RNA sequence: UGUCAACUUUAGGGGUGUCUACAUUUUUGUAGGCUGAGAUUUUACCCUCAUAACCUGAUCUAGAUCAUACUAGCGUAGGGAAAAGUAAGAUGUCUUCG
Dot-bracket structure: .....(((((((((..(((((........)))))..........)))).....((((..((((......))))..))))..)))))............
RNA: TPP riboswitch aptamer (THI element)
Organism: Sphingobacterium sp. SGL-16